Source information:
Rfam assigns this 347-nucleotide RNA from Sphingomonas sp. Leaf42 to the family "Alphaproteobacteria transfer-messenger RNA". The organism belongs to Sphingomonas, within Bacteria. The literature on the family includes a 1996 paper in RNA by Williams and Bartel, "Phylogenetic analysis of tmRNA secondary structure". The base pairs follow the family's consensus structure, which is taken from published work. The family's RNA type in Rfam is non-coding RNA gene.
[Rfam]
RNA sequence: CUUCUUUUCAAACGCCGUCGAUGCGCCUAUAUCCCUGUCCGUCGGCUUCCAGCCGGCUAUGGCGAUAAACUGCGGCGUGCAAUAGACGCAGCGGACCCGGGGGCAGUACCCGGCGGCUCCACCAUAAGGUGGUGUUUCUGGACACCGUUUCUGACGGGGCCGAACCAGGAUCGACGUGUGUUGAAAAGCGCUGUUUUCGCUCGGAAUGGGACCACCGCAACGGCCCAUACACACAAGUGCCAACGAUAACGAAGCACUCGCGAUUGCGGCGUAACUGAGGGCCUCACGGCCUGAAGUUACUCUAAAAUAGCGCGGUUGGACCGAACCGGGCAACAGAAUCGGAUUCC
Numbered sequence: 001c002u003u004c005u006u007u008u009c010a011a012a013c014g015c016c017g018u019c020g021a022u023g024c025g026c027c028u029a030u031a032u033c034c035c036u037g038u039c040c041g042u043c044g045g046c047u048u049c050c051a052g053c054c055g056g057c058u059a060u061g062g063c064g065a066u067a068a069a070c071u072g073c074g075g076c077g078u079g080c081a082a083u084a085g086a087c088g089c090a091g092c093g094g095a096c097c098c099g100g101g102g103g104c105a106g107u108a109c110c111c112g113g114c115g116g117c118u119c120c121a122c123c124a125u126a127a128g129g130u131g132g133u134g135u136u137u138c139u140g141g142a143c144a145c146c147g148u149u150u151c152u153g154a155c156g157g158g159g160c161c162g163a164a165c166c167a168g169g170a171u172c173g174a175c176g177u178g179u180g181u182u183g184a185a186a187a188g189c190g191c192u193g194u195u196u197u198c199g200c201u202c203g204g205a206a207u208g209g210g211a212c213c214a215c216c217g218c219a220a221c222g223g224c225c226c227a228u229a230c231a232c233a234c235a236a237g238u239g240c241c242a243a244c245g246a247u248a249a250c251g252a253a254g255c256a257c258u259c260g261c262g263a264u265u266g267c268g269g270c271g272u273a274a275c276u277g278a279g280g281g282c283c284u285c286a287c288g289g290c291c292u293g294a295a296g297u298u299a300c301u302c303u304a305a306a307a308u309a310g311c312g313c314g315g316u317u318g319g320a321c322c323g324a325a326c327c328g329g330g331c332a333a334c335a336g337a338a339u340c341g342g343a344u345u346c347c
Stems, first nucleotide, its partner, number of pairs: 041057005061201005072194007087180003091177003097113005114162007202217003207227003212223002313328004319345002322342001